[Rfam]
RNA: S4-Flavobacteria ribosomal protein leader
RNA sequence: GGUUAUCGAAGGUAUAAUUUGACCUUAAUUCAUAAUU
Numbered sequence: 001g002g003u004u005a006u007c008g009a010a011g012g013u014a015u016a017a018u019u020u021g022a023c024c025u026u027a028a029u030u031c032a033u034a035a036u037u
Stems, first nucleotide, its partner, number of pairs: 001037006008031001009026004